[Rfam]
RNA sequence: UUUUGGCGGGGGUGAUGAAUGAAUUAGAUGUGCGAAGUUAACUUAUGAGCUUAACUUUUGAGGCAUACAAUUUGUCUGACCUGCCAAGC
Number, nucleotide and partner (000 for none) at each position: 001u000002u088003u087004u086005g085006g084007c083008g082009g081010g080011g000012g000013u000014g000015a000016u000017g000018a000019a000020u000021g000022a000023a000024u000025u000026a000027g000028a000029u000030g000031u000032g000033c000034g000035a000036a000037g000038u000039u000040a000041a000042c000043u000044u000045a000046u000047g000048a000049g000050c000051u000052u000053a000054a000055c000056u000057u000058u000059u000060g000061a000062g000063g000064c000065a000066u000067a000068c000069a000070a000071u000072u000073u000074g000075u000076c000077u000078g000079a000080c010081c009082u008083g007084c006085c005086a004087a003088g002089c000
Small nucleolar RNA Z266: an 89-nucleotide sequence from Dichanthelium oligosanthes. On this family, see Chen et al., Nucleic Acids Res 2003: "The high diversity of snoRNAs in plants: identification and comparative study of 120 snoRNA genes from Oryza sativa". The match comes from Rfam's covariance-model search (87 bits).